Shown here is a 168-nucleotide RNA from Oryza meridionalis, a member of the family "MIR2118 microRNA precursor family".
[Rfam]
RNA sequence: GUUGGGAAGAGGAAGAAAAGAGGGUCUAAGAGCAGUGGCCAUGGGAACAUGGAGGAAGAACAUGUACUUUUCUUCCCUCUAAAUUUAGAGGUUGAGAUUUGCUGAGUGUUUUCCCCAAUGCCUCCCAUGCCUACAGUUCUUAGGUGCUCCUUCCCCUUCCUGUUGGCU
Numbered sequence: 001g002u003u004g005g006g007a008a009g010a011g012g013a014a015g016a017a018a019a020g021a022g023g024g025u026c027u028a029a030g031a032g033c034a035g036u037g038g039c040c041a042u043g044g045g046a047a048c049a050u051g052g053a054g055g056a057a058g059a060a061c062a063u064g065u066a067c068u069u070u071u072c073u074u075c076c077c078u079c080u081a082a083a084u085u086u087a088g089a090g091g092u093u094g095a096g097a098u099u100u101g102c103u104g105a106g107u108g109u110u111u112u113c114c115c116c117a118a119u120g121c122c123u124c125c126c127a128u129g130c131c132u133a134c135a136g137u138u139c140u141u142a143g144g145u146g147c148u149c150c151u152u153c154c155c156c157u158u159c160c161u162g163u164u165g166g167c168u
Stems, first nucleotide, its partner, number of pairs: 009159004015153003020149003025144009036133003040129007048120003052116001054115002056112002059110003
Lineage of the source: Eukaryota > Embryophyta > Magnoliopsida > Mesangiospermae > Oryza.